[Rfam]
Nucleotides: 508
Stems, first nucleotide, its partner, number of pairs: 001446006011024001013022003028167006044121007055110001056108002062104003067099001069097003074094006081087001124151004128146005174198004179193005203214003218396005224390001228386003237383001239382001243379003263357003267354010284341005290314003296308002315319001320335001324333002397436006404430003448503001450500003455495003459492002467487002473482003
Number, partner (000 for none) and nucleotide at each position: 001446c002445c003444c004443u005442c006441c007000g008000a009000a010000g011024u012000u013022u014021c015020c016000c017000u018000c019000a020015g021014g022013a023000u024011a025000g026000c027000u028167g029166g030165c031164g032163c033162u034000c035000c036000g037000u038000c039000c040000g041000c042000a043000g044121u045120u046119u047118a048117u049116c050115c051000g052000g053000u054000a055110a056108a057107g058000c059000g060000a061000a062104u063103g064102a065000c066000u067099a068000g069097a070096g071095g072000u073000c074094u075093u076092g077091g078090g079089g080000c081087c082000g083000a084000a085000a086000c087081g088000a089079u090078c091077u092076c093075a094074a095071c096070c097069u098000a099067u100000u101000c102064u103063c104062a105000a106000a107057c108056u109000u110055u111000a112000a113000a114000u115050g116049g117048g118047u119046a120045a121044g122000a123000a124151g125150c126149c127148c128146g129145g130144c131143u132142c133000g134000c135000u136000g137000g138000c139000u140000u141000g142132g143131a144130g145129c146128c147000c148127g149126g150125g151124c152000g153000u154000g155000g156000a157000a158000u159000g160000c161000g162033a163032g164031c165030g166029c167028c168000c169000a170000g171000u172000g173000g174198g175197c176196c177195a178000c179193u180192u181191u182190u183189g184000g185000u186000a187000a188000g189183c190182a191181g192180a193179a194000c195177u196176g197175g198174c199000g200000c201000u202000g203214c204213g205212g206000g207000a208000u209000g210000a211000a212205c213204c214203g215000a216000a217000c218396g219395c220394c221393g222392g223000g224390u225000u226000a227000a228386g229385g230384c231000g232000c233000c234000c235000g236000a237383u238000g239382c240000c241000g242000a243379c244378g245377c246000u247000c248000a249000c250000c251000a252000g253000a254000c255000c256000c257000c258000a259000g260000a261000a262000a263357a264356g265355g266000u267354g268353u269352u270351g271350g272349u273348u274347g275346a276345u277000a278000u279000a280000g281000a282000c283000u284341g285340c286339a287338g288337g289000a290314u291313g292312g293000u294000g295000g296308c297307c298000a299000u300000g301000g302000a303000a304000g305000u306000c307297g308296g309000a310000a311000c312292c313291c314290g315319c316000c317000a318000a319315g320335g321000a322000a323000u324333g325332u326000g327000u328000a329000a330000c331000a332325a333324c334000u335320c336000a337288c338287c339286u340285g341284c342000c343000g344000a345276a346275u347274c348273a349272a350271c351270u352269a353268g354267c355265c356264c357263u358000g359000a360000a361000a362000a363000u364000g365000g366000a367000u368000g369000g370000c371000g372000c373000u374000g375000u376000a377245g378244c379243g380000u381000c382239g383237g384230g385229c386228c387000c388000a389000u390224a391000c392222c393221c394220g395219g396218c397436c398435g399434u400433c401432g402431c403000c404430g405429g406428c407000c408000g409000c410000g411000g412000g413000a414000g415000c416000c417000g418000c419000g420000a421000a422000g423000g424000c425000u426000a427000a428406g429405c430404c431402g432401c433400g434399a435398c436397g437000a438000g439000u440000a441006g442005g443004a444003g445002g446001g447000c448503c449000g450500c451499c452498g453000c454000a455495g456494u457493g458000g459492g460491c461000a462000c463000u464000g465000a466000a467487g468486c469000c470000u471000a472000g473482g474481g475480u476000g477000a478000g479000g480475g481474c482473c483000c484000g485000g486468g487467u488000g489000g490000a491460g492459c493457c494456g495455u496000c497000a498452u499451g500450g501000g502000u503448g504000c505000a506000g507000a508000u